Overview:
Shown here is a 136-nucleotide sequence from Miscanthus lutarioriparius, a member of the family "Small nucleolar RNA F1/F2/snoR5a". About the family: This family contains F1, F2 and snoR5a sequences, all of which are members of the the H/ACA class of snoRNA that guide the sites of modification of uridines to pseudouridines. By type it is an H/ACA-box small nucleolar RNA. The base pairs follow the family's consensus structure, which was predicted with PFOLD.
RNA sequence: CAAUGCCAUUUGGUAUCUGACUUGCAGUCAUUCUUUGUGAUUGUGUGUCUCGAAACAUGGCAGAAUAUAAGGGGGAACAGAUCUUGCGACAUUGGUUGCUUAUUUAUGAGUUUCCAGUUACUAUAUUGUGGCAUCU
Number, nucleotide and partner (000 for none) at each position: 001c000002a000003a000004u062005g061006c060007c059008a058009u057010u000011u000012g000013g000014u000015a000016u000017c000018u000019g049020a048021c047022u000023u045024g044025c043026a042027g041028u040029c039030a000031u000032u000033c000034u000035u000036u000037g000038u000039g029040a028041u027042u026043g025044u024045g023046u000047g021048u020049c019050u000051c000052g000053a000054a000055a000056c000057a009058u008059g007060g006061c005062a004063g000064a000065a000066u000067a000068u000069a000070a000071g000072g000073g000074g000075g000076a129077a000078c000079a000080g000081a000082u000083c000084u000085u000086g000087c000088g000089a000090c000091a118092u117093u116094g115095g114096u000097u000098g111099c110100u109101u000102a000103u000104u000105u000106a000107u000108g000109a100110g099111u098112u000113u000114c095115c094116a093117g092118u091119u000120a000121c000122u000123a000124u000125a000126u000127u000128g000129u076130g000131g000132c000133a000134u000135c000136u000